The family of this 92-nucleotide sequence from Prunus yedoensis is "MIR6288 microRNA precursor family". NCBI's taxonomy places the organism under Eukaryota, Tracheophyta, Mesangiospermae, Prunus, Prunus yedoensis.
RNA sequence: CCAAAACUAGCCACUUGUCAUUUUCUAAUUCGUUCUUAGUGCAUUAAAGUUUUCUAAGAACCAAUUAGAAAAUAACAAGUGAUUAGUUUUGA
Numbered sequence: 001c002c003a004a005a006a007c008u009a010g011c012c013a014c015u016u017g018u019c020a021u022u023u024u025c026u027a028a029u030u031c032g033u034u035c036u037u038a039g040u041g042c043a044u045u046a047a048a049g050u051u052u053u054c055u056a057a058g059a060a061c062c063a064a065u066u067a068g069a070a071a072a073u074a075a076c077a078a079g080u081g082a083u084u085a086g087u088u089u090u091g092a
Stems, first nucleotide, its partner, number of pairs: 002091009012081007020073011032061008
The family has 3 seed sequences and 293 matches in Rfam 15.1. It scores 93 bits against the family's covariance model.